RNA: Bacterial large subunit ribosomal RNA, nucleotides 2263 to 2848
RNA sequence: CGCGCGGCAGGACGGAAAGACCCCGGGACCUUUACUAUAGCUUGGUAUUGGUGUUCGAUUCGGCUUGUGUAGGAUAGGUGGGAGACUGUGAAGCGGGCACGCCAGUGUUCGUGGAGUCAUCGUUGAAAUACCACUCUGGUCGUAUUGGAUGUCUAACCCGGGCCCCUGAUCGGGGUCGGGGACAGUGCCUGGUGGGUAGUUUAACUGGGGCGGUUGCCUCCUAAAAUGUAACGGAGGCGCCCAAAGGUUCCCUCAGCCUGGUUGGCAAUCAGGUGUUGAGUGCAAGUGCACAAGGGAGCUUGACUGUGAGACUGACAGGUCGAGCAGGAGCGAAAGCUGGGACUAGUGAUCCGGCACUGGCUGGUGGAAGCGGUGUCGCUCAACGGAUAAAAGGUACCCCGGGGAUAACAGGCUGAUCUUCCCCAAGAGUCCAUAUCGACGGGAUGGUUUGGCACCUCGAUGUCGGCUCGUCGCAUCCUGGGGCUGGAGUAGGUCCCAAGGGUUGGGCUGUUCGCCCAUUAAAGCGGUACGCGAGCUGGGUUUAGAACGUCGUGAGACAGUUCGGUCCCUAUCCGCCGUGCGCGUU
Numbered sequence: 001c002g003c004g005c006g007g008c009a010g011g012a013c014g015g016a017a018a019g020a021c022c023c024c025g026g027g028a029c030c031u032u033u034a035c036u037a038u039a040g041c042u043u044g045g046u047a048u049u050g051g052u053g054u055u056c057g058a059u060u061c062g063g064c065u066u067g068u069g070u071a072g073g074a075u076a077g078g079u080g081g082g083a084g085a086c087u088g089u090g091a092a093g094c095g096g097g098c099a100c101g102c103c104a105g106u107g108u109u110c111g112u113g114g115a116g117u118c119a120u121c122g123u124u125g126a127a128a129u130a131c132c133a134c135u136c137u138g139g140u141c142g143u144a145u146u147g148g149a150u151g152u153c154u155a156a157c158c159c160g161g162g163c164c165c166c167u168g169a170u171c172g173g174g175g176u177c178g179g180g181g182a183c184a185g186u187g188c189c190u191g192g193u194g195g196g197u198a199g200u201u202u203a204a205c206u207g208g209g210g211c212g213g214u215u216g217c218c219u220c221c222u223a224a225a226a227u228g229u230a231a232c233g234g235a236g237g238c239g240c241c242c243a244a245a246g247g248u249u250c251c252c253u254c255a256g257c258c259u260g261g262u263u264g265g266c267a268a269u270c271a272g273g274u275g276u277u278g279a280g281u282g283c284a285a286g287u288g289c290a291c292a293a294g295g296g297a298g299c300u301u302g303a304c305u306g307u308g309a310g311a312c313u314g315a316c317a318g319g320u321c322g323a324g325c326a327g328g329a330g331c332g333a334a335a336g337c338u339g340g341g342a343c344u345a346g347u348g349a350u351c352c353g354g355c356a357c358u359g360g361c362u363g364g365u366g367g368a369a370g371c372g373g374u375g376u377c378g379c380u381c382a383a384c385g386g387a388u389a390a391a392a393g394g395u396a397c398c399c400c401g402g403g404g405a406u407a408a409c410a411g412g413c414u415g416a417u418c419u420u421c422c423c424c425a426a427g428a429g430u431c432c433a434u435a436u437c438g439a440c441g442g443g444a445u446g447g448u449u450u451g452g453c454a455c456c457u458c459g460a461u462g463u464c465g466g467c468u469c470g471u472c473g474c475a476u477c478c479u480g481g482g483g484c485u486g487g488a489g490u491a492g493g494u495c496c497c498a499a500g501g502g503u504u505g506g507g508c509u510g511u512u513c514g515c516c517c518a519u520u521a522a523a524g525c526g527g528u529a530c531g532c533g534a535g536c537u538g539g540g541u542u543u544a545g546a547a548c549g550u551c552g553u554g555a556g557a558c559a560g561u562u563c564g565g566u567c568c569c570u571a572u573c574c575g576c577c578g579u580g581c582g583c584g585u586u
Base pairs, nucleotide, nucleotide: 001582002581003580004579005578006577007576008575010574011573012572014569015568022403023402024401025400026399027398028395029394030393031392032391034200035199036198037197041192042191044189045188046187047186050153051152052151053150054149055148056147057146058145059144061142062141063140064139065138067136077135078134079133080132081131084118085117086116093112094111095110096109097108098107099106100105157180158179159178161177162176163175164174165173166172203215204214205213206212216238217237218236219235220234221233239384241341242340247299248298249297250296251295252294253279254278256274257273258272259271260270261269280289281288304327305326306325307324310321311320312319329338330337331336352378353377354376355375356374357373358372360371361370412453413452414451416450417447418446420444421443422442423441427437428436464539465537466536467535468534469531470528471527472526473525474524477502478501480497481496482495483494484493485492504518505517506516507515508514545563546562547561548560549558550557551556